[Rfam]
RNA sequence: UUGUGCCUGGCUCCCUGUAUGCCACACAAGCAUAGCAAUCUAUGGUGAGAUUGCCUGCAUUGAUUGGCGUGCAAGGAGCCAAGCAUGC
Numbered sequence: 001u002u003g004u005g006c007c008u009g010g011c012u013c014c015c016u017g018u019a020u021g022c023c024a025c026a027c028a029a030g031c032a033u034a035g036c037a038a039u040c041u042a043u044g045g046u047g048a049g050a051u052u053g054c055c056u057g058c059a060u061u062g063a064u065u066g067g068c069g070u071g072c073a074a075g076g077a078g079c080c081a082a083g084c085a086u087g088c
Stems, first nucleotide, its partner, number of pairs: 002087005008081007016073009027062003
This 88-nucleotide RNA sequence from Ananas comosus belongs to the Rfam family "mir-160 microRNA precursor family". Its family is annotated with RISC complex and miRNA-mediated post-transcriptional gene silencing in the Gene Ontology. A search with the family's covariance model found it, with a score of 80 bits. NCBI's taxonomy places the organism under Eukaryota, Streptophytina, Magnoliopsida, Bromeliaceae, Ananas. On this family, see Rhoades et al., Cell 2002: "Prediction of plant microRNA targets".